[Rfam]
RNA: FMN riboswitch aptamer (RFN element)
RNA sequence: ACUUAUUCUCAGGGCAGGGUGAAAUUCCCUACCGGCGGUAUGCCCCAACGGGCGAGCCCGCGAGCGCCUGUCGAUAUGACAGGGUCAGCAGAUCCGGUGAAAAGCCGGAGCCGACGGUCACAGUCCGGAUGGGAGAGGAUAAGG
Numbered sequence: 001a002c003u004u005a006u007u008c009u010c011a012g013g014g015c016a017g018g019g020u021g022a023a024a025u026u027c028c029c030u031a032c033c034g035g036c037g038g039u040a041u042g043c044c045c046c047a048a049c050g051g052g053c054g055a056g057c058c059c060g061c062g063a064g065c066g067c068c069u070g071u072c073g074a075u076a077u078g079a080c081a082g083g084g085u086c087a088g089c090a091g092a093u094c095c096g097g098u099g100a101a102a103a104g105c106c107g108g109a110g111c112c113g114a115c116g117g118u119c120a121c122a123g124u125c126c127g128g129a130u131g132g133g134a135g136a137g138g139a140u141a142a143g144g
Base pairs, nucleotide, nucleotide: 003142004141005140006139007138008137009136010135017029018028019027031124032123033113034112035061036060037059038058056111057110064089065088093109094108095107096106097105115127116126117125